[Rfam]
RNA sequence: AUUCCCAUUCUACUACCACUUUUUCAGCUUCCAGAUUAAGUGGCUAUGCUUGUGGGAUAAAGCAAAACUUGCCACAGUCUGAAGGAAAAGGUUGAUUGUAUCUUUUUCCUAUAUGAAGUUGGCAGGACAUCUUUUA
Numbered sequence: 001a002u003u004c005c006c007a008u009u010c011u012a013c014u015a016c017c018a019c020u021u022u023u024u025c026a027g028c029u030u031c032c033a034g035a036u037u038a039a040g041u042g043g044c045u046a047u048g049c050u051u052g053u054g055g056g057a058u059a060a061a062g063c064a065a066a067a068c069u070u071g072c073c074a075c076a077g078u079c080u081g082a083a084g085g086a087a088a089a090g091g092u093u094g095a096u097u098g099u100a101u102c103u104u105u106u107u108c109c110u111a112u113a114u115g116a117a118g119u120u121g122g123c124a125g126g127a128c129a130u131c132u133u134u135u136a
Base pairs, nucleotide, nucleotide: 004056005055006054007053016043017042018041019040071123072122073121074120089110090109091108